[Rfam]
RNA sequence: AGCUCUGUGCAGUGGCAGUAUUGUAGCCAAUGAGGCUUAUCUGGGGUGCGAUUAUUGCUAAUUGAAAACUUUUCACGAUACCCCGCCAUGAUGACUUGAAAUAUAGUCAGAGUUGGCCAUUUUUGGCAGUCUCUAUGGAGA
Dot-bracket structure: ...................(((((.(((.....((.....))..))))))))................................(((((..(((((........)))))..)).)))............((((....))))

The record is a 141-nucleotide RNA from Callithrix jacchus, which matches "U4 spliceosomal RNA" in Rfam. NCBI's taxonomy places the organism under Eukaryota, Chordata, Craniata, Simiiformes, Callithrix. U4 small nuclear RNA (U4 snRNA) is a component of the major U2-dependent spliceosome. Clan: U4 clan. By type it is a spliceosomal small nuclear RNA.